[Rfam]
RNA sequence: CCUCCGCGCAGAGAAUCGCCGUCGCAGCACACACACAGAAGUCCUCGUGGCUUUAUAUCUUGAAGCUGUGGGGAAAGUCCCCGGAGACGCAGGCUUGUACUCGUUUACCGCCGCGCGCGCACUAGCGGAAAGCGGCUGGUUGUUAACACGGCCAGACUCGCGCGCGGGGCGCCCUCUGUGGAGGGACCUGCGGCAGCGCGCAUGGCUUAUAACGCGAAGAUAUGAGCGGGUCAUGUCGUCGCGCGCAUUGUUGCUCGUAGACAAAGUUAUGCGAUUGCAUUCUUCCUUGUGGAGGGUGUAACGGAAUGGGGCUCACUCCUGCGCGGGG
Numbered sequence: 001c002c003u004c005c006g007c008g009c010a011g012a013g014a015a016u017c018g019c020c021g022u023c024g025c026a027g028c029a030c031a032c033a034c035a036c037a038g039a040a041g042u043c044c045u046c047g048u049g050g051c052u053u054u055a056u057a058u059c060u061u062g063a064a065g066c067u068g069u070g071g072g073g074a075a076a077g078u079c080c081c082c083g084g085a086g087a088c089g090c091a092g093g094c095u096u097g098u099a100c101u102c103g104u105u106u107a108c109c110g111c112c113g114c115g116c117g118c119g120c121a122c123u124a125g126c127g128g129a130a131a132g133c134g135g136c137u138g139g140u141u142g143u144u145a146a147c148a149c150g151g152c153c154a155g156a157c158u159c160g161c162g163c164g165c166g167g168g169g170c171g172c173c174c175u176c177u178g179u180g181g182a183g184g185g186a187c188c189u190g191c192g193g194c195a196g197c198g199c200g201c202a203u204g205g206c207u208u209a210u211a212a213c214g215c216g217a218a219g220a221u222a223u224g225a226g227c228g229g230g231u232c233a234u235g236u237c238g239u240c241g242c243g244c245g246c247a248u249u250g251u252u253g254c255u256c257g258u259a260g261a262c263a264a265a266g267u268u269a270u271g272c273g274a275u276u277g278c279a280u281u282c283u284u285c286c287u288u289g290u291g292g293a294g295g296g297u298g299u300a301a302c303g304g305a306a307u308g309g310g311g312c313u314c315a316c317u318c319c320u321g322c323g324c325g326g327g328g
Stems, first nucleotide, its partner, number of pairs: 002328010014276006022071007038053002042049001076313002079311004092137004138153006155249002161245006170238002173235001176229004205215002208212001278298006

RNase MRP: a 328-nucleotide RNA sequence from Peniophora sp. CBMAI 1063. Rfam describes the family as follows. RNase MRP is an enzymatically active ribonucleoprotein with two distinct roles in eukaryotes. In mitochondria it plays a direct role in the initiation of mitochondrial DNA replication. In the nucleus it is involved in precursor rRNA processing, where it cleaves the internal transcribed spacer 1 between 18S and 5.8S rRNAs. Despite distinct functions, RNase MRP has been shown to be evolutionarily related to RNase P. Like eukaryotic RNase P, RNase MRP is not catalytically active without associated protein subunits. The literature on the family includes a 1993 paper in FASEB J by Schmitt et al., "Secondary structure of RNase MRP RNA as predicted by phylogenetic comparison". It is annotated as a ribozyme. The organism belongs to Peniophora, within Eukaryota.